Shown here is an 83-nucleotide RNA sequence from Tistrella mobilis, a member of the family "Makes More Granules Regulator RNA (mmgR)". Rfam 15.1 lists 1,791 matches to the family in 918 species. NCBI's taxonomy places the organism under Bacteria, Pseudomonadati, Pseudomonadota, Geminicoccaceae, Tistrella mobilis. The family's RNA type in Rfam is small RNA. The pairing is the family consensus, mapped onto this sequence. The match comes from Rfam's covariance-model search (61 bits).
RNA sequence: GGCCGCUGCCCAGAUCCUUGGGCGUUUCCUCCCUAGACUUAGGGCCGUGUCAGUCUGCUGGCGCGGCCUUUUUUUUGCGCCGG
Numbered sequence: 001g002g003c004c005g006c007u008g009c010c011c012a013g014a015u016c017c018u019u020g021g022g023c024g025u026u027u028c029c030u031c032c033c034u035a036g037a038c039u040u041a042g043g044g045c046c047g048u049g050u051c052a053g054u055c056u057g058c059u060g061g062c063g064c065g066g067c068c069u070u071u072u073u074u075u076u077g078c079g080c081c082g083g
Base pairs, nucleotide, nucleotide: 008023009022010021011020043068044067045066046065047064048063049062050061051060